[Rfam]
RNA sequence: AUAAUGAUACUUCCGUCCAGUCACAGCCCCCUUGGCCGGGGACCACGCAAUGAGGGCGGCCGCCAGAGAACCUGGCGGAGGUGGGAUUCCUAUGA
Numbered sequence: 001a002u003a004a005u006g007a008u009a010c011u012u013c014c015g016u017c018c019a020g021u022c023a024c025a026g027c028c029c030c031c032u033u034g035g036c037c038g039g040g041g042a043c044c045a046c047g048c049a050a051u052g053a054g055g056g057c058g059g060c061c062g063c064c065a066g067a068g069a070a071c072c073u074g075g076c077g078g079a080g081g082u083g084g085g086a087u088u089c090c091u092a093u094g095a
Stems, first nucleotide, its partner, number of pairs: 012092001013059006060078003064074003079091003
Description: The record is a 95-nucleotide sequence, which matches "pemK RNA" in Rfam. By type it is a cis-regulatory element.